[Rfam]
A member of the RNA family "MIR158 microRNA precursor family" from Adiantum capillus-veneris, 99 nucleotides long. On this family, see Reinhart et al., Genes Dev 2002: "MicroRNAs in plants". The source organism's lineage runs through Eukaryota, Embryophyta, Tracheophyta, Polypodiales and Adiantum.
RNA sequence: UUUGAAAGAUUCUAUUUUUUAUUCUCUAGAUUCUAGACGAAGUUGUGAUGUCACAACUUCGUCUAGAAUCUAGAGAAUAAAAAAUAGAAUCUUUCAAAA
Numbered sequence: 001u002u003u004g005a006a007a008g009a010u011u012c013u014a015u016u017u018u019u020u021a022u023u024c025u026c027u028a029g030a031u032u033c034u035a036g037a038c039g040a041a042g043u044u045g046u047g048a049u050g051u052c053a054c055a056a057c058u059u060c061g062u063c064u065a066g067a068a069u070c071u072a073g074a075g076a077a078u079a080a081a082a083a084a085u086a087g088a089a090u091c092u093u094u095c096a097a098a099a
Base pairs, nucleotide, nucleotide: 003096004095005094006093007092008091009090010089012087014085015084016083018081020079021078022077023076024075025074026073027072028071029070030069031068032067033066035064036063037062038061039060041058042057043056044055045054046053047052